[Rfam]
RNA sequence: GCUCCGAACUUCGUUCGGAGCGUCUACCCCGGUACCUGACACGGCCGGAGAGA
Numbered sequence: 001g002c003u004c005c006g007a008a009c010u011u012c013g014u015u016c017g018g019a020g021c022g023u024c025u026a027c028c029c030c031g032g033u034a035c036c037u038g039a040c041a042c043g044g045c046c047g048g049a050g051a052g053a
Base pairs, nucleotide, nucleotide: 001021002020003019004018005017006016007015008014009013023053024052025051027050029048030047031046032045033044
Shown here is a 53-nucleotide sequence from Nocardioides flavescens, a member of the family "L17-Actino-Proteobacteria ribosomal protein leader". For this family Rfam cites "Discovery of 20 novel ribosomal leader candidates in bacteria and archaea" (Eckert and Weinberg, BMC Microbiol, 2020). The organism belongs to Nocardioides, within Bacteria. The base pairs follow the family's consensus structure, which is taken from published work.